[Rfam]
RNA: Nematode snoRNA ceN36-1
Organism: Dictyocaulus viviparus
RNA sequence: UCUCGCUCUUCAGCUCCGUGCAAAGUUGUUAUCCUUCGUGCGGCGUUUCAUGGAGCGGAUAUAAGAGAAGAAUGACGAUUAUUGGUGUUUCUUCAUAGAGUACCGAUCACUGUUCGACUUCGUACACCU
Numbered sequence: 001u002c003u004c005g006c007u008c009u010u011c012a013g014c015u016c017c018g019u020g021c022a023a024a025g026u027u028g029u030u031a032u033c034c035u036u037c038g039u040g041c042g043g044c045g046u047u048u049c050a051u052g053g054a055g056c057g058g059a060u061a062u063a064a065g066a067g068a069a070g071a072a073u074g075a076c077g078a079u080u081a082u083u084g085g086u087g088u089u090u091c092u093u094c095a096u097a098g099a100g101u102a103c104c105g106a107u108c109a110c111u112g113u114u115c116g117a118c119u120u121c122g123u124a125c126a127c128c129u
Stems, first nucleotide, its partner, number of pairs: 003058006012047003016043006024035002081107004086102003090099003